[Rfam]
A member of the RNA family "Glycine riboswitch aptamer" from Neisseria meningitidis, 98 nucleotides long. The organism belongs to Neisseria meningitidis serogroup B, within Bacteria. Clan: Glycine riboswitch clan.
RNA sequence: GGGAAAUGUGCAGGAGAGUGUUACACCCAACUACAAUGUAACCACCGAAGGCGCAGACACCCUUAAAUCGCUCAGGUAUCAGGGACUGCACAUUGAAA
Numbered sequence: 001g002g003g004a005a006a007u008g009u010g011c012a013g014g015a016g017a018g019u020g021u022u023a024c025a026c027c028c029a030a031c032u033a034c035a036a037u038g039u040a041a042c043c044a045c046c047g048a049a050g051g052c053g054c055a056g057a058c059a060c061c062c063u064u065a066a067a068u069c070g071c072u073c074a075g076g077u078a079u080c081a082g083g084g085a086c087u088g089c090a091c092a093u094u095g096a097a098a
Base pairs, nucleotide, nucleotide: 006093007092008091009090010089011088012087013086020042021041022040023039024038025037044077045076046075047073048072051071052070053069057064